The family of this 138-nucleotide RNA from Dendrobium nobile is "small nucleolar RNA snoR134". The organism belongs to Dendrobium, within Eukaryota. On this family, see Chen and Wu, Nucleic Acids Res 2009: "Mining small RNA sequencing data: a new approach to identify small nucleolar RNAs in Arabidopsis". Rfam classes the family as an H/ACA-box small nucleolar RNA.

[Rfam]
RNA sequence: UCGCACGUGCACCCCGGGCUGUUCCGAAACCCCAGACGAAGGUAGCCCCAAUGCUCGUGCAAGAGCUAUCGUCCGUCUGUGUUGCAGUUCUGAUCGUUGUUAAUUUGACAGAUCUGUUUCAAAGCAACGGCUAAAUUU
Numbered sequence: 001u002c003g004c005a006c007g008u009g010c011a012c013c014c015c016g017g018g019c020u021g022u023u024c025c026g027a028a029a030c031c032c033c034a035g036a037c038g039a040a041g042g043u044a045g046c047c048c049c050a051a052u053g054c055u056c057g058u059g060c061a062a063g064a065g066c067u068a069u070c071g072u073c074c075g076u077c078u079g080u081g082u083u084g085c086a087g088u089u090c091u092g093a094u095c096g097u098u099g100u101u102a103a104u105u106u107g108a109c110a111g112a113u114c115u116g117u118u119u120c121a122a123a124g125c126a127a128c129g130g131c132u133a134a135a136u137u138u
Base pairs, nucleotide, nucleotide: 003060004059005058006057007056009054010053016048017047018046019045020044022041023039024038073130074129075128076127080121081120084117085116086115087114091108093106